[Rfam]
RNA sequence: UGAGUGUGAUGAUGUUGGCGAGGGUUCUGUGGGCGCAUGUGUUGAGUUGUAAUGGACUCUCUUUCGCGUCAGCCUUGCUUAUAGUCUAGCUCUAGUCGCCUAGCUGUUACCAGUUAGG
Numbered sequence: 001u002g003a004g005u006g007u008g009a010u011g012a013u014g015u016u017g018g019c020g021a022g023g024g025u026u027c028u029g030u031g032g033g034c035g036c037a038u039g040u041g042u043u044g045a046g047u048u049g050u051a052a053u054g055g056a057c058u059c060u061c062u063u064u065c066g067c068g069u070c071a072g073c074c075u076u077g078c079u080u081a082u083a084g085u086c087u088a089g090c091u092c093u094a095g096u097c098g099c100c101u102a103g104c105u106g107u108u109a110c111c112a113g114u115u116a117g118g
Base pairs, nucleotide, nucleotide: 002092003091004090005089011086012085013084017079018078019077020076021075022074099118100117101116102115103114104113105112106111